[Rfam]
RNA: Corio-PBP RNA
RNA sequence: GUGCGCGUAACUUUCUCGCAUCGGGUCGCAUGUGCGCGUCUCGCUUGCAAGGGGGAGGGGAAUGGGUCCCCUCCGGUUGCGUCGCGCGAAAGG
Numbered sequence: 001g002u003g004c005g006c007g008u009a010a011c012u013u014u015c016u017c018g019c020a021u022c023g024g025g026u027c028g029c030a031u032g033u034g035c036g037c038g039u040c041u042c043g044c045u046u047g048c049a050a051g052g053g054g055g056a057g058g059g060g061a062a063u064g065g066g067u068c069c070c071c072u073c074c075g076g077u078u079g080c081g082u083c084g085c086g087c088g089a090a091a092g093g
Stems, first nucleotide, its partner, number of pairs: 001087005006081002009078004014052002018048003054074008